Shown here is a 141-nucleotide RNA from Thermomonospora cellulosilytica, a member of the family "c-di-AMP riboswitch aptamer (ydaO/yuaA leader)".
Rfam describes the family as follows. This family represents a conserved RNA structure found upstream of the ydaO and yuaA genes in Bacillus subtilis and related genes in other bacteria.
The match comes from Rfam's covariance-model search (65 bits).
The organism belongs to Thermomonospora, within Bacteria.

RNA sequence: AAUCCCGCGGUGCCAGCCCGCCGCGGGAACCGGGGACCCAACGUAGAUCCGGGGUGAACUCACGGCCCGUCCGGCCGCGACAGGGCCGACCUCCCGGUCCGAACCCGUCAGCUAACCCGGUAGGCGAACAAGAGAGGAGAG
Numbered sequence: 001a002a003u004c005c006c007g008c009g010g011u012g013c014c015a016g017c018c019c020g021c022c023g024c025g026g027g028a029a030c031c032g033g034g035g036a037c038c039c040a041a042c043g044u045a046g047a048u049c050c051g052g053g054g055u056g057a058a059c060u061c062a063c064g065g066c067c068c069g070u071c072c073g074g075c076c077g078c079g080a081c082a083g084g085g086c087c088g089a090c091c092u093c094c095c096g097g098u099c100c101g102a103a104c105c106c107g108u109c110a111g112c113u114a115a116c117c118c119g120g121u122a123g124g125c126g127a128a129c130a131a132g133a134g135a136g137g138a139g140a141g
Base pairs, nucleotide, nucleotide: 003028004027005026006025007024008023009022010021011020012019029121030120031119032118033117034116039051052106053105054104060080061079063077064076065075083100084099085098086097